[Rfam]
RNA sequence: CGAAUGCCGUCUGGAGAGCCAUCGCCACCGCGAUGCACCGAAGGAGCAAGCCCCGCAAUCGCUGCGUGGUGAAUCUCUCAGGUACCAAGGACAGGGGGAGCGGC
Numbered sequence: 001c002g003a004a005u006g007c008c009g010u011c012u013g014g015a016g017a018g019c020c021a022u023c024g025c026c027a028c029c030g031c032g033a034u035g036c037a038c039c040g041a042a043g044g045a046g047c048a049a050g051c052c053c054c055g056c057a058a059u060c061g062c063u064g065c066g067u068g069g070u071g072a073a074u075c076u077c078u079c080a081g082g083u084a085c086c087a088a089g090g091a092c093a094g095g096g097g098g099a100g101c102g103g104c
Stems, first nucleotide, its partner, number of pairs: 007098002010095004020035004037083003040079002044077003050070002
The family of this 104-nucleotide sequence from Variovorax sp. is "Glycine riboswitch aptamer". A search with the family's covariance model found it, with a score of 57 bits. The base pairs follow the family's consensus structure.